[Rfam]
RNA sequence: GAGGGUAGGUCCCUCGGAGUCGGCUUUCAGGAGCGGGCUUCAAACCACCCCAAGCUGCUGCGGUCAAGAGCCGUCGGUGGUGAGCGUUGGGGUCAAAGCGUCGGGGACGUACCCCGAGCAGGU
Numbered sequence: 001g002a003g004g005g006u007a008g009g010u011c012c013c014u015c016g017g018a019g020u021c022g023g024c025u026u027u028c029a030g031g032a033g034c035g036g037g038c039u040u041c042a043a044a045c046c047a048c049c050c051c052a053a054g055c056u057g058c059u060g061c062g063g064u065c066a067a068g069a070g071c072c073g074u075c076g077g078u079g080g081u082g083a084g085c086g087u088u089g090g091g092g093u094c095a096a097a098g099c100g101u102c103g104g105g106g107a108c109g110u111a112c113c114c115c116g117a118g119c120a121g122g123u
Stems, first nucleotide, its partner, number of pairs: 001015005016041006023034004046122001048092006054081002057078003061073004100119001101117005
RNA: Group II catalytic intron D1-D4-2